Shown here is a 103-nucleotide RNA from Gellertiella hungarica, a member of the family "Alphaproteobacterial ar15". Rfam 15.1 lists 316 matches to the family in 177 species. On this family, see del Val et al., RNA Biol 2012: "A survey of sRNA families in alpha-proteobacteria".

RNA sequence: AGCUGACGUGCGCACCCCUCCCAGUCCGCGCGUCGGCUGUUCCCCUCUGGAGGUUAUUGACCCCCACACCUUAAGGGCCGCGAUUUUCCGCUGGCCCUUUUUC
Numbered sequence: 001a002g003c004u005g006a007c008g009u010g011c012g013c014a015c016c017c018c019u020c021c022c023a024g025u026c027c028g029c030g031c032g033u034c035g036g037c038u039g040u041u042c043c044c045c046u047c048u049g050g051a052g053g054u055u056a057u058u059g060a061c062c063c064c065c066a067c068a069c070c071u072u073a074a075g076g077g078c079c080g081c082g083a084u085u086u087u088c089c090g091c092u093g094g095c096c097c098u099u100u101u102u103c
Stems, first nucleotide, its partner, number of pairs: 001038005007032006048066003052062003074098006080091003